[Rfam]
RNA sequence: AUCGACUACCUUCAAAGGAGUAGUUUUCCCACCCGGGAUCUACUUUACCAUAUUUCGAAUUC
Numbered sequence: 001a002u003c004g005a006c007u008a009c010c011u012u013c014a015a016a017g018g019a020g021u022a023g024u025u026u027u028c029c030c031a032c033c034c035g036g037g038a039u040c041u042a043c044u045u046u047a048c049c050a051u052a053u054u055u056c057g058a059a060u061u062c
Stems, first nucleotide, its partner, number of pairs: 017046007025038001027037002
RNA: Plastid-psbN 5UTR RNA
Organism: Olea europaea